[Rfam]
RNA sequence: AUGAACCUUCGGGGCAGGGUGAAAUUCCCGACCGGCGGUGAAACUGCAUGUUCUGUUCAGAUGGGACACGAUUUGCGGUUGAGCCCGCGACUCCGCGCAUCGGCUUUGCGUGGACUGACUUGGUGAAAAUCCAAGGCCGACGGUAUAGUCCGGAUGGGAGAAGGUAAAC
Numbered sequence: 001a002u003g004a005a006c007c008u009u010c011g012g013g014g015c016a017g018g019g020u021g022a023a024a025u026u027c028c029c030g031a032c033c034g035g036c037g038g039u040g041a042a043a044c045u046g047c048a049u050g051u052u053c054u055g056u057u058c059a060g061a062u063g064g065g066a067c068a069c070g071a072u073u074u075g076c077g078g079u080u081g082a083g084c085c086c087g088c089g090a091c092u093c094c095g096c097g098c099a100u101c102g103g104c105u106u107u108g109c110g111u112g113g114a115c116u117g118a119c120u121u122g123g124u125g126a127a128a129a130u131c132c133a134a135g136g137c138c139g140a141c142g143g144u145a146u147a148g149u150c151c152g153g154a155u156g157g158g159a160g161a162a163g164g165u166a167a168a169c
Stems, first nucleotide, its partner, number of pairs: 005165006017029003031149002033139002035088004092114002119135005141152003
The family of this 169-nucleotide RNA from Alicyclobacillus acidoterrestris is "FMN riboswitch aptamer (RFN element)". The source organism's lineage runs through Bacteria, Bacilli, Caryophanales, Alicyclobacillaceae and Alicyclobacillus. A search with the family's covariance model found it, with a score of 109 bits.